[Rfam]
Nucleotides: 171
Stems, first nucleotide, its partner, number of pairs: 012129004016055003020051002023049003033046002056097004063090003067086003101122001102120003106116002145170003149166002153162003
Number, partner (000 for none) and nucleotide at each position: 001000a002000u003000a004000c005000u006000u007000a008000c009000c010000c011000g012129g013128c014127a015126g016055g017054g018053g019000a020051g021050a022000u023049a024048c025047c026000a027000u028000g029000a030000u031000c032000c033046a034045u035000g036000a037000u038000c039000a040000c041000a042000a043000a044000g045034g046033u047025g048024g049023u050021u051020u052000c053018c054017c055016c056097a057096g058095g059094g060000c061000a062000a063090g064089g065088c066000u067086c068085a069084u070000c071000c072000a073000u074000u075000g076000c077000a078000c079000u080000g081000c082000a083000a084069a085068u086067g087000u088065g089064c090063u091000g092000a093000c094059c095058c096057c097056u098000g099000c100000a101122a102120u103119u104118u105000c106116c107115u108000c109000a110000a111000a112000u113000g114000u115107a116106g117000g118104a119103a120102a121000c122101u123000c124000a125000a126015u127014u128013g129012c130000a131000u132000a133000a134000u135000g136000u137000g138000u139000g140000g141000c142000a143000g144000u145170g146169g147168g148000a149166g150165a151000c152000u153162g154161c155160g156000u157000u158000c159000a160155u161154g162153c163000u164000u165150u166149c167000c168147c169146u170145u171000g
Background
Rfam assigns this 171-nucleotide sequence from Pan paniscus to the family "U1 spliceosomal RNA". Pairs were carried over by alignment from the consensus structure, which is taken from published work. It scores 103 bits against the family's covariance model. Taxonomically the source falls in Pan (Eukaryota, Chordata, Euarchontoglires, Simiiformes). A reference for the family is Zwieb (1997), "The uRNA database", Nucleic Acids Res.